[Rfam]
RNA: Potassium channel RNA editing signal
Organism: Salvelinus namaycush
RNA sequence: GUGGUUACCAUGACAAUCAUGGGCUAUGCAUGACCUAUUCUGGUAUGGUAAUUGGAGCCCUAUGUGCUCUGGCAGGCAUUCUGACCAUAGCCAUGCCUGUCCCAGUCAUAGUAAAUAAC
Numbered sequence: 001g002u003g004g005u006u007a008c009c010a011u012g013a014c015a016a017u018c019a020u021g022g023g024c025u026a027u028g029c030a031u032g033a034c035c036u037a038u039u040c041u042g043g044u045a046u047g048g049u050a051a052u053u054g055g056a057g058c059c060c061u062a063u064g065u066g067c068u069c070u071g072g073c074a075g076g077c078a079u080u081c082u083g084a085c086c087a088u089a090g091c092c093a094u095g096c097c098u099g100u101c102c103c104a105g106u107c108a109u110a111g112u113a114a115a116u117a118a119c
Stems, first nucleotide, its partner, number of pairs: 001119002004116002006113003010109001012107003021102004042082002045079001054068002